[Rfam]
RNA sequence: AGCCGGUGAUGACUUCUUUUUUUCUGACACCUCGUAUGAGCUGCAUAGCAGCAAGUGAUUAGGAGUUUCAGUCUGAGGCUA
Dot-bracket structure: ((((...................................(((((...)))))........................)))).
Numbered sequence: 001a002g003c004c005g006g007u008g009a010u011g012a013c014u015u016c017u018u019u020u021u022u023u024c025u026g027a028c029a030c031c032u033c034g035u036a037u038g039a040g041c042u043g044c045a046u047a048g049c050a051g052c053a054a055g056u057g058a059u060u061a062g063g064a065g066u067u068u069c070a071g072u073c074u075g076a077g078g079c080u081a
Stems, first nucleotide, its partner, number of pairs: 001080004040052005

Rfam assigns this 81-nucleotide RNA from Clupea harengus to the family "Small nucleolar RNA SNORD60". By type it is a C/D-box small nucleolar RNA. NCBI's taxonomy places the organism under Eukaryota, Eumetazoa, Clupeocephala, Clupeiformes, Clupea. The literature on the family includes a 2002 paper in Mol Cell Biol by Galardi et al., "Purified box C/D snoRNPs are able to reproduce site-specific 2'-O-methylation of target RNA in vitro". The family has 22 seed sequences and 825 matches in Rfam 15.1. Gene Ontology terms of the family: nucleolus and RNA processing. It scores 59 bits against the family's covariance model.